RNA: Ascomycota telomerase RNA, nucleotides 1293 to 1722
Organism: Cercophora newfieldiana
RNA sequence: AUCAUACGGAAAGACUUGGCUUGGUUCGGGUGUCGUCUCGGCGUUGUUGACUCUUGUUGCCGAGUUGGCGGGAGUUACAUCGAUGAUACCCGGUUCACUUUGAGUAUCUGGUUACAGCUGGGUGUCUUGGCAACCCGGAGGGUGUGACGGAUCCCGGGGUUAAGGAUAGCUUGUUAGGCCAGGCUUAGGCUUCAGCAUCUUGGUGAAGGCGGCGGCAGAUGAGGCCAGGUUCGGGACCCAUCUAGAGUUGGUGUCAAAGUCUCACUUGUCCGGACUUGCAACCUCCCUGUCGAUUUGCUCAUCCAAGGUAUCUGGACGCCGGUCUGGUCGAUACCUGCCCAUCAUGUUGGAAAAGGGCGGGCCUCUUGGGAGGCGGCCCUGGUCGCCCUCGCUCCAGAAAUGGCGAGAGGGCGGCCCCUCUUCCGGGAGG
Numbered sequence: 001a002u003c004a005u006a007c008g009g010a011a012a013g014a015c016u017u018g019g020c021u022u023g024g025u026u027c028g029g030g031u032g033u034c035g036u037c038u039c040g041g042c043g044u045u046g047u048u049g050a051c052u053c054u055u056g057u058u059g060c061c062g063a064g065u066u067g068g069c070g071g072g073a074g075u076u077a078c079a080u081c082g083a084u085g086a087u088a089c090c091c092g093g094u095u096c097a098c099u100u101u102g103a104g105u106a107u108c109u110g111g112u113u114a115c116a117g118c119u120g121g122g123u124g125u126c127u128u129g130g131c132a133a134c135c136c137g138g139a140g141g142g143u144g145u146g147a148c149g150g151a152u153c154c155c156g157g158g159g160u161u162a163a164g165g166a167u168a169g170c171u172u173g174u175u176a177g178g179c180c181a182g183g184c185u186u187a188g189g190c191u192u193c194a195g196c197a198u199c200u201u202g203g204u205g206a207a208g209g210c211g212g213c214g215g216c217a218g219a220u221g222a223g224g225c226c227a228g229g230u231u232c233g234g235g236a237c238c239c240a241u242c243u244a245g246a247g248u249u250g251g252u253g254u255c256a257a258a259g260u261c262u263c264a265c266u267u268g269u270c271c272g273g274a275c276u277u278g279c280a281a282c283c284u285c286c287c288u289g290u291c292g293a294u295u296u297g298c299u300c301a302u303c304c305a306a307g308g309u310a311u312c313u314g315g316a317c318g319c320c321g322g323u324c325u326g327g328u329c330g331a332u333a334c335c336u337g338c339c340c341a342u343c344a345u346g347u348u349g350g351a352a353a354a355g356g357g358c359g360g361g362c363c364u365c366u367u368g369g370g371a372g373g374c375g376g377c378c379c380u381g382g383u384c385g386c387c388c389u390c391g392c393u394c395c396a397g398a399a400a401u402g403g404c405g406a407g408a409g410g411g412c413g414g415c416c417c418c419u420c421u422u423c424c425g426g427g428a429g430g
Stems, first nucleotide, its partner, number of pairs: 235255003238251003257267004
Dot-bracket structure: ..........................................................................................................................................................................................................................................((((((........))).))).((((...))))...................................................................................................................................................................